[Rfam]
RNA sequence: AUACCUUCCCAUUGUAAGUCGCUUUGGAUAAAAGCGUCUGCCAAAUAAAGUAAA
Numbered sequence: 001a002u003a004c005c006u007u008c009c010c011a012u013u014g015u016a017a018g019u020c021g022c023u024u025u026g027g028a029u030a031a032a033a034g035c036g037u038c039u040g041c042c043a044a045a046u047a048a049a050g051u052a053a054a
Stems, first nucleotide, its partner, number of pairs: 013043001014041003020036006
This 54-nucleotide RNA sequence from Denticeps clupeoides belongs to the Rfam family "UnaL2 LINE 3' element". On this family, see Baba et al., RNA 2004: "Solution structure of an RNA stem-loop derived from the 3' conserved region of eel LINE UnaL2".